Rfam assigns this 78-nucleotide RNA from Nothobranchius furzeri to the family "mir-103/107 microRNA precursor family".
The source organism's lineage runs through Eukaryota, Neopterygii, Euteleosteomorpha, Atherinomorphae and Nothobranchius.
Pairs were carried over by alignment from the consensus structure, which was predicted with RNAalifold.
RNA sequence: CUACGCUUUUAGCCUCUUUACGGUGCUGCCUUGUCUUGUCAUGUUCAAGCAGCAUUGUACAGGGCUAUGACAGCAUAG
Numbered sequence: 001c002u003a004c005g006c007u008u009u010u011a012g013c014c015u016c017u018u019u020a021c022g023g024u025g026c027u028g029c030c031u032u033g034u035c036u037u038g039u040c041a042u043g044u045u046c047a048a049g050c051a052g053c054a055u056u057g058u059a060c061a062g063g064g065c066u067a068u069g070a071c072a073g074c075a076u077a078g
Stems, first nucleotide, its partner, number of pairs: 014064004019059010030049004